[Rfam]
RNA sequence: AUAACUUUAUUUUUAAUUCACACACAUUUCGUCACAUGUUUCGGGGUGCCCAAGAACUCAUAGAGUUUAUGAGGUCGAAACCAUGGGAAAUGUGGAGGCCUAAC
Numbered sequence: 001a002u003a004a005c006u007u008u009a010u011u012u013u014u015a016a017u018u019c020a021c022a023c024a025c026a027u028u029u030c031g032u033c034a035c036a037u038g039u040u041u042c043g044g045g046g047u048g049c050c051c052a053a054g055a056a057c058u059c060a061u062a063g064a065g066u067u068u069a070u071g072a073g074g075u076c077g078a079a080a081c082c083a084u085g086g087g088a089a090a091u092g093u094g095g096a097g098g099c100c101u102a103a104c
Stems, first nucleotide, its partner, number of pairs: 023094008035085004040079004048075003
The family of this 104-nucleotide RNA sequence from Vibrio ishigakensis is "t44 RNA". The match comes from Rfam's covariance-model search (78 bits). The family's RNA type in Rfam is small RNA. Rfam describes the family as follows. This family consists of a number of bacterial RNA genes of between 135 and 170 bases in length. The t44 gene has been identified in several species of enteric bacteria but homologs have also been identified in Pseudomonas and Coxiella species. The t44 gene is found between the map and rpsB genes in all species in the full alignment apart from Shigella flexneri. The function of this RNA is unknown. On this family, see Tjaden et al., Nucleic Acids Res 2002: "Transcriptome analysis of Escherichia coli using high-density oligonucleotide probe arrays".